[Rfam]
RNA: Potassium channel RNA editing signal
Organism: Astyanax mexicanus
RNA sequence: GCAGGUAUGGAGACAUGGUUCCAAAAGACAAUUGUGGGGAAGAUAUUUGGCUCCAUCUGCUCUCUCAGUGGAGUGUUGGUGAUUGCGCUGCCUGUGCCCGUCAUCGUCUCCAAC
Numbered sequence: 001g002c003a004g005g006u007a008u009g010g011a012g013a014c015a016u017g018g019u020u021c022c023a024a025a026a027g028a029c030a031a032u033u034g035u036g037g038g039g040a041a042g043a044u045a046u047u048u049g050g051c052u053c054c055a056u057c058u059g060c061u062c063u064c065u066c067a068g069u070g071g072a073g074u075g076u077u078g079g080u081g082a083u084u085g086c087g088c089u090g091c092c093u094g095u096g097c098c099c100g101u102c103a104u105c106g107u108c109u110c111c112a113a114c
Stems, first nucleotide, its partner, number of pairs: 001114001004111002007107004012102003017097001021094001037077002040074001049063002